The family of this 36-nucleotide sequence from Oryzias sinensis is "Iron response element I".
Rfam 15.1 lists 6,829 matches to the family in 599 species.
It is annotated as a cis-regulatory element.
A search with the family's covariance model found it, with a score of 44 bits.
The literature on the family includes a 1987 paper in Science by Hentze et al., "Identification of the iron-responsive element for the translational regulation of human ferritin mRNA".
Gene Ontology term of the family: response to iron ion.
RNA sequence: CGAGUUCUUGCUUCAACAGUGAUUGAACAGAACUUC
Numbered sequence: 001c002g003a004g005u006u007c008u009u010g011c012u013u014c015a016a017c018a019g020u021g022a023u024u025g026a027a028c029a030g031a032a033c034u035u036c
Stems, first nucleotide, its partner, number of pairs: 002035007010028001012027005017021001